This 133-nucleotide RNA from Hemibagrus wyckioides belongs to the Rfam family "Small nucleolar RNA SNORA77". By type it is an H/ACA-box small nucleolar RNA. The organism belongs to Hemibagrus, within Eukaryota. About the family: ACA63 (SNORA77) is a member of the H/ACA class of snoRNAs that guide the sites of modification of uridines to pseudouridines. The literature on the family includes a 2006 paper in RNA by Schattner et al., "A computational screen for mammalian pseudouridylation guide H/ACA RNAs". Rfam 15.1 lists 843 matches to the family in 607 species.

RNA sequence: GCAGACUCACUCUGUUCGGGGUCGCCUCCUCAGGCUCUGAACUUUUUCAGUCUGCUACAGAGAUGCUGCAGAAGAGCUUUAUACUGACCCUGCCCCCUAUAGGCAGAGUUACAGAGUGUUCUGCUACACCUGU
Numbered sequence: 001g002c003a004g005a006c007u008c009a010c011u012c013u014g015u016u017c018g019g020g021g022u023c024g025c026c027u028c029c030u031c032a033g034g035c036u037c038u039g040a041a042c043u044u045u046u047u048c049a050g051u052c053u054g055c056u057a058c059a060g061a062g063a064u065g066c067u068g069c070a071g072a073a074g075a076g077c078u079u080u081a082u083a084c085u086g087a088c089c090c091u092g093c094c095c096c097c098u099a100u101a102g103g104c105a106g107a108g109u110u111a112c113a114g115a116g117u118g119u120u121c122u123g124c125u126a127c128a129c130c131u132g133u
Stems, first nucleotide, its partner, number of pairs: 001055006014042007022033001024031001067126001068124006076117005